About this RNA
The family of this 102-nucleotide sequence from Fervidicella metallireducens is "Purine riboswitch aptamer". NCBI's taxonomy places the organism under Bacteria, Bacillota, Clostridia, Clostridiaceae, Fervidicella metallireducens.
[Rfam]
RNA sequence: AAGACAAAUAAAUAUUCGACUCGUAUAUGCUUGAUAAUAUGGUUCAAGCGUUUCUACCAGGAAGCCGUAAACUACCUGACUACGAGUAUAUGGUUCUUUAAA
Numbered sequence: 001a002a003g004a005c006a007a008a009u010a011a012a013u014a015u016u017c018g019a020c021u022c023g024u025a026u027a028u029g030c031u032u033g034a035u036a037a038u039a040u041g042g043u044u045c046a047a048g049c050g051u052u053u054c055u056a057c058c059a060g061g062a063a064g065c066c067g068u069a070a071a072c073u074a075c076c077u078g079a080c081u082a083c084g085a086g087u088a089u090a091u092g093g094u095u096c097u098u099u100a101a102a
Stems, first nucleotide, its partner, number of pairs: 019087007029049006058078004063073002